Nucleotides: 054
Stems, first nucleotide, its partner, number of pairs: 001019004006011001024054003028051007
Number, partner (000 for none) and nucleotide at each position: 001019u002018u003017c004016c005000c006011c007000g008000g009000c010000c011006g012000u013000g014000c015000c016004g017003g018002a019001a020000c021000c022000a023000g024054c025053u026052g027000a028051c029050a030049c031048c032047g033046g034045u035000a036000c037000c038000u039000g040000a041000c042000a043000c044000g045034g046033c047032c048031g049030g050029u051028g052026c053025a054024g